[Rfam]
RNA sequence: CUGUCUCUUCCAUCAACAGUGCUUGGAUGGAACAG
Numbered sequence: 001c002u003g004u005c006u007c008u009u010c011c012a013u014c015a016a017c018a019g020u021g022c023u024u025g026g027a028u029g030g031a032a033c034a035g
Stems, first nucleotide, its partner, number of pairs: 001035004006031003013026004017021001